Shown here is a 132-nucleotide sequence from Cuscuta europaea, a member of the family "MIR168 microRNA precursor family". NCBI's taxonomy places the organism under Eukaryota, Viridiplantae, Streptophytina, Embryophyta, Cuscuta subgen. Cuscuta.
RNA sequence: AUUGCGGCGCUCUCUAAUUCGCUUGGUGCAGUUCGGGAACUGCCUUGCCAGACGGUGGCUGAGCACAACUACGCCGUCUCCGGCGAAUCCAGCUCCCGUUAUGCAUCAACUGAAUCCGGGGCCGUCGCGAUC
Numbered sequence: 001a002u003u004g005c006g007g008c009g010c011u012c013u014c015u016a017a018u019u020c021g022c023u024u025g026g027u028g029c030a031g032u033u034c035g036g037g038a039a040c041u042g043c044c045u046u047g048c049c050a051g052a053c054g055g056u057g058g059c060u061g062a063g064c065a066c067a068a069c070u071a072c073g074c075c076g077u078c079u080c081c082g083g084c085g086a087a088u089c090c091a092g093c094u095c096c097c098g099u100u101a102u103g104c105a106u107c108a109a110c111u112g113a114a115u116c117c118g119g120g121g122c123c124g125u126c127g128c129g130a131u132c
Stems, first nucleotide, its partner, number of pairs: 013119002017115004023109008034098005040092002